[Rfam]
RNA: Trypanosomatid mitochondrial large subunit ribosomal RNA
Organism: Trypanosoma cruzi
RNA sequence: AUUUUAAGUGCGUUUAUUAAAUGCGUUUGUCUAAGAAAUAUAUUUAAGAUUAUUCUUGUAUAUAUAUUUAUAAAUUAAUAAUUCUAAAAAUAAAAUAAAGCUUCCUCGAAAAUAAAAUUUUAGUAGCAUAGUAAUUUGUUAACUAAUUAUUAAAGUGUUCCACAGAAAUUUUUUAAAUUAAAACAAAAAAAAUAAUUUAUGAAUUAAAAUAAAAAUUUUAAUAAAAAUUAAAUAAUUAAAAUAGGGCAAGUCCUACUCUCCUUUACAAAGAGAACGUUUCAAUAAUACGUAAUUGUAUGUUUGAUUGGGGCAAUACUAUAUUUAUUUAUAUAGGCAAAGAACUAUAAUUAUUGAAAUAAUAAAAGGUUCGAGCAGGUUAACAAGCAUUAAUACUAAAUGUGUUUCAUCGUCUACUUAUUGCUAAACAAAUUGAUUGUUCAUCAAAUUUGCAAUUCGUUAGUUGGGUUAAAAUCGUUGUAAAGCAGAUUUGUUUAUAUAUUUAAUUAAUAUAAGGAGUGCAUAGUAAUAUUAGUACGCAAGGAUCAAUUAUUUGUUAUUUUAUAUAUACU
Numbered sequence: 001a002u003u004u005u006a007a008g009u010g011c012g013u014u015u016a017u018u019a020a021a022u023g024c025g026u027u028u029g030u031c032u033a034a035g036a037a038a039u040a041u042a043u044u045u046a047a048g049a050u051u052a053u054u055c056u057u058g059u060a061u062a063u064a065u066a067u068u069u070a071u072a073a074a075u076u077a078a079u080a081a082u083u084c085u086a087a088a089a090a091u092a093a094a095a096u097a098a099a100g101c102u103u104c105c106u107c108g109a110a111a112a113u114a115a116a117a118u119u120u121u122a123g124u125a126g127c128a129u130a131g132u133a134a135u136u137u138g139u140u141a142a143c144u145a146a147u148u149a150u151u152a153a154a155g156u157g158u159u160c161c162a163c164a165g166a167a168a169u170u171u172u173u174u175a176a177a178u179u180a181a182a183a184c185a186a187a188a189a190a191a192a193u194a195a196u197u198u199a200u201g202a203a204u205u206a207a208a209a210u211a212a213a214a215a216u217u218u219u220a221a222u223a224a225a226a227a228u229u230a231a232a233u234a235a236u237u238a239a240a241a242u243a244g245g246g247c248a249a250g251u252c253c254u255a256c257u258c259u260c261c262u263u264u265a266c267a268a269a270g271a272g273a274a275c276g277u278u279u280c281a282a283u284a285a286u287a288c289g290u291a292a293u294u295g296u297a298u299g300u301u302u303g304a305u306u307g308g309g310g311c312a313a314u315a316c317u318a319u320a321u322u323u324a325u326u327u328a329u330a331u332a333g334g335c336a337a338a339g340a341a342c343u344a345u346a347a348u349u350a351u352u353g354a355a356a357u358a359a360u361a362a363a364a365g366g367u368u369c370g371a372g373c374a375g376g377u378u379a380a381c382a383a384g385c386a387u388u389a390a391u392a393c394u395a396a397a398u399g400u401g402u403u404u405c406a407u408c409g410u411c412u413a414c415u416u417a418u419u420g421c422u423a424a425a426c427a428a429a430u431u432g433a434u435u436g437u438u439c440a441u442c443a444a445a446u447u448u449g450c451a452a453u454u455c456g457u458u459a460g461u462u463g464g465g466u467u468a469a470a471a472u473c474g475u476u477g478u479a480a481a482g483c484a485g486a487u488u489u490g491u492u493u494a495u496a497u498a499u500u501u502a503a504u505u506a507a508u509a510u511a512a513g514g515a516g517u518g519c520a521u522a523g524u525a526a527u528a529u530u531a532g533u534a535c536g537c538a539a540g541g542a543u544c545a546a547u548u549a550u551u552u553g554u555u556a557u558u559u560u561a562u563a564u565a566u567a568c569u
Base pairs, nucleotide, nucleotide: 242255243254244253245252257486258485259484261482262481263480264479265478266477267476268475270473271472274290275289276288277287292314293313294312295311296310316333317332318331319330320329321328339369340368341367342366343365382404383403384402385401386400387399407464408463409462411460412459413458414456417453418452419451420450421449431440432439433438